[Rfam]
The family of this 81-nucleotide sequence from Vibrio toranzoniae is "antisense RNA of dnaA mRNA".
Taxonomically the source falls in Vibrio (Bacteria, Pseudomonadati, Gammaproteobacteria, Vibrionales).
Pairs were carried over by alignment from the consensus structure, which was predicted with RNAfold.
It scores 56 bits against the family's covariance model.

RNA sequence: UUUAGCGUUUGGUUUGUUAUCAACAAUGGCGUUACCUACAGCAUGCAACAAGUGCGUUUUACCUAAACCAGUACCACCAUA
Numbered sequence: 001u002u003u004a005g006c007g008u009u010u011g012g013u014u015u016g017u018u019a020u021c022a023a024c025a026a027u028g029g030c031g032u033u034a035c036c037u038a039c040a041g042c043a044u045g046c047a048a049c050a051a052g053u054g055c056g057u058u059u060u061a062c063c064u065a066a067a068c069c070a071g072u073a074c075c076a077c078c079a080u081a
Stems, first nucleotide, its partner, number of pairs: 005042002009038001011036003016032002020029002052077003056074002061072002